The family of this 377-nucleotide RNA is "Bacterial RNase P class B". Rfam classes the family as a ribozyme. Clan: RNaseP clan. The match comes from Rfam's covariance-model search (247 bits).
[Rfam]
RNA sequence: AUAGAGAGUGAGUAGCUUUCUUAUUAAUUAAGGAAGAGGAAAGUCCAUGCUUGCAUAGUCUGAAAUGACUAUAGUGUUUGUGUAAGUAUAUAAAAAAUAAAACUUAACAGUUAGAAAAAACCUAACUGAUGGCGGAAGAUAUUUCUAAAUAAGUUUUUCUAACUUAUAUGAAACAUCUUCUAUAAAGUGCCACAGAGACGAGUUUUGCGGAAACGCAGAGUGUGAAACGCGGUAAACCCCUCAAGCAAGAAACCUAAAAAUUGGUAAGGGACUCCAUCCCUAGGAAAUUAACAAGGGCUGGAAAUAUAACUUCUGUUAUAUUAGAUUAAUUACUCACAUCCAAUUGUUUAAUUGGAGACAGAACAUGGCUUAUCAUC
Numbered sequence: 001a002u003a004g005a006g007a008g009u010g011a012g013u014a015g016c017u018u019u020c021u022u023a024u025u026a027a028u029u030a031a032g033g034a035a036g037a038g039g040a041a042a043g044u045c046c047a048u049g050c051u052u053g054c055a056u057a058g059u060c061u062g063a064a065a066u067g068a069c070u071a072u073a074g075u076g077u078u079u080g081u082g083u084a085a086g087u088a089u090a091u092a093a094a095a096a097a098u099a100a101a102a103c104u105u106a107a108c109a110g111u112u113a114g115a116a117a118a119a120a121c122c123u124a125a126c127u128g129a130u131g132g133c134g135g136a137a138g139a140u141a142u143u144u145c146u147a148a149a150u151a152a153g154u155u156u157u158u159c160u161a162a163c164u165u166a167u168a169u170g171a172a173a174c175a176u177c178u179u180c181u182a183u184a185a186a187g188u189g190c191c192a193c194a195g196a197g198a199c200g201a202g203u204u205u206u207g208c209g210g211a212a213a214c215g216c217a218g219a220g221u222g223u224g225a226a227a228c229g230c231g232g233u234a235a236a237c238c239c240c241u242c243a244a245g246c247a248a249g250a251a252a253c254c255u256a257a258a259a260a261u262u263g264g265u266a267a268g269g270g271a272c273u274c275c276a277u278c279c280c281u282a283g284g285a286a287a288u289u290a291a292c293a294a295g296g297g298c299u300g301g302a303a304a305u306a307u308a309a310c311u312u313c314u315g316u317u318a319u320a321u322u323a324g325a326u327u328a329a330u331u332a333c334u335c336a337c338a339u340c341c342a343a344u345u346g347u348u349u350a351a352u353u354g355g356a357g358a359c360a361g362a363a364c365a366u367g368g369c370u371u372a373u374c375a376u377c
Stems, first nucleotide, its partner, number of pairs: 004377002007373001008337007016036006041371003045368005050249005055072006078244003082240001083106005107130001108128006131239002134181004142173004149167007187237002189233003202221008253269003273302004278297002303322008339356007